A member of the RNA family "Group II catalytic intron D1-D4-3" from Paenibacillus agri, 171 nucleotides long. Taxonomically the source falls in Paenibacillus (Bacteria, Bacillati, Caryophanales, Paenibacillaceae). Gene Ontology term of the family: Group II intron splicing.
RNA sequence: UCCACCGUGAGGUGGAAUCUGAAGGAAGCCGGAGGCAAAAGCACGGUCUGAGGUACACGAAUCCAAUUUGAGGCGGUUGCAGCUGGAUGAGUCACCUUAACAUGACAAAAUCCAAAGCUGCCAAGAGCUGCAGCCGUAAACUUGGGCAGGCGCGGGCGGAAAGAUGGCGUU
Number, nucleotide and partner (000 for none) at each position: 001u016002c015003c014004a013005c012006c011007g000008u000009g000010a000011g006012g005013u004014g003015g002016a001017a000018u000019c000020u000021g000022a000023a000024g000025g000026a000027a000028g171029c000030c169031g168032g000033a000034g000035g000036c163037a000038a000039a000040a000041g157042c156043a000044c154045g153046g151047u150048c149049u148050g147051a000052g000053g000054u000055a000056c000057a000058c000059g000060a000061a000062u146063c145064c144065a143066a142067u140068u000069u000070g000071a000072g000073g137074c136075g135076g000077u133078u132079g131080c130081a129082g128083c127084u000085g113086g112087a111088u110089g000090a000091g106092u105093c104094a103095c000096c000097u000098u000099a000100a000101c000102a000103u094104g093105a092106c091107a000108a000109a000110a088111u087112c086113c085114a000115a000116a000117g000118c000119u000120g000121c000122c000123a000124a000125g000126a000127g083128c082129u081130g080131c079132a078133g077134c000135c075136g074137u073138a000139a000140a067141c000142u066143u065144g064145g063146g062147c050148a049149g048150g047151c046152g000153c045154g044155g000156g042157c041158g000159g000160a000161a000162a000163g036164a000165u000166g000167g000168c031169g030170u000171u028